[Rfam]
RNA sequence: UCACGUUCAGUUACCCUGUAGCACCGAGCUGUGUGUCUGCAUUUUGGUACACACUGUCGGUUACAGGUUAAAUGAAUUUGAAG
Numbered sequence: 001u002c003a004c005g006u007u008c009a010g011u012u013a014c015c016c017u018g019u020a021g022c023a024c025c026g027a028g029c030u031g032u033g034u035g036u037c038u039g040c041a042u043u044u045u046g047g048u049a050c051a052c053a054c055u056g057u058c059g060g061u062u063a064c065a066g067g068u069u070a071a072a073u074g075a076a077u078u079u080g081a082a083g
Stems, first nucleotide, its partner, number of pairs: 012070002015067001018064004024060002028058001030056001033054004039048002
The record is an 83-nucleotide RNA sequence from Trichinella spiralis, which matches "mir-57 microRNA precursor family" in Rfam. Rfam links the family to the GO terms RISC complex and miRNA-mediated post-transcriptional gene silencing. It scores 44 bits against the family's covariance model. On this family, see Kozomara et al., Nucleic Acids Res 2019: "miRBase: from microRNA sequences to function". The organism belongs to Trichinella, within Eukaryota.